RNA sequence: CAGUUUUGAAGUCAGUCCGCGUGUUCUGCCCCUGAGUGCCGUUCUCCUGGCGCGUCCCUAAGCCGCAGGUGUCUCCUCCCUCGCCCGCGGUGAUGCGCCCGCCUUGCCUCGCUUGCCGCUCCCAGCGCAGCGAGGCGUUUU
Numbered sequence: 001c002a003g004u005u006u007u008g009a010a011g012u013c014a015g016u017c018c019g020c021g022u023g024u025u026c027u028g029c030c031c032c033u034g035a036g037u038g039c040c041g042u043u044c045u046c047c048u049g050g051c052g053c054g055u056c057c058c059u060a061a062g063c064c065g066c067a068g069g070u071g072u073c074u075c076c077u078c079c080c081u082c083g084c085c086c087g088c089g090g091u092g093a094u095g096c097g098c099c100c101g102c103c104u105u106g107c108c109u110c111g112c113u114u115g116c117c118g119c120u121c122c123c124a125g126c127g128c129a130g131c132g133a134g135g136c137g138u139u140u141u
Stems, first nucleotide, its partner, number of pairs: 049099008065088002068085004106136008117125001
Shown here is a 141-nucleotide RNA from Rhizobium sp. LC145, a member of the family "Rhizobiales sRNA Atu_C7". The organism belongs to Rhizobium, within Bacteria. By type it is a small RNA.